[Rfam]
RNA sequence: UGUCAAGUGUCAUUGGCGUCAUUUUGGCGGGUGGAUUUCUUUUGCCUUUAGAAAGGUGAGAGGACAUG
Numbered sequence: 001u002g003u004c005a006a007g008u009g010u011c012a013u014u015g016g017c018g019u020c021a022u023u024u025u026g027g028c029g030g031g032u033g034g035a036u037u038u039c040u041u042u043u044g045c046c047u048u049u050a051g052a053a054a055g056g057u058g059a060g061a062g063g064a065c066a067u068g
Base pairs, nucleotide, nucleotide: 010063011062013060014059017058018057019056020055022054023053024052025051027049029047031045032044033043034042035041